[Rfam]
RNA sequence: CCCGGCCCCUCGUGCGGCGUUAUCUCGCGAACUCCCCCAGGACCGGAAGGUAGCAAGGGUAAGCGGGCUCUGGCGGGUGCACGGGGGGUCCUUGAC
Number, nucleotide and partner (000 for none) at each position: 001c000002c000003c000004g090005g089006c088007c087008c086009c085010u084011c083012g082013u081014g080015c077016g000017g000018c075019g074020u073021u072022a071023u000024c067025u066026c065027g064028c063029g000030a000031a000032c000033u000034c059035c058036c057037c000038c000039a000040g000041g000042a051043c050044c049045g000046g000047a000048a000049g044050g043051u042052a000053g000054c000055a000056a000057g036058g035059g034060u000061a000062a000063g028064c027065g026066g025067g024068c000069u000070c000071u022072g021073g020074c019075g018076g000077g015078u000079g000080c014081a013082c012083g011084g010085g009086g008087g007088g006089u005090c004091c000092u000093u000094g000095a000096c000
This 96-nucleotide RNA sequence from Actinomyces sp. HMT897 belongs to the Rfam family "Bacterial small signal recognition particle RNA". Rfam describes the family as follows. The signal recognition particle (SRP) is a universally conserved ribonucleoprotein involved in the co-translational targeting of proteins to membranes. It scores 71 bits against the family's covariance model. The source organism's lineage runs through Bacteria, Bacillati, Actinomycetota, Actinomycetales and Actinomyces. Its family is annotated with SRP-dependent cotranslational protein targeting to membrane, signal sequence recognition and signal recognition particle, plasma membrane targeting in the Gene Ontology. The literature on the family includes a 2003 paper in Nucleic Acids Res by Rosenblad et al., "SRPDB: Signal Recognition Particle Database".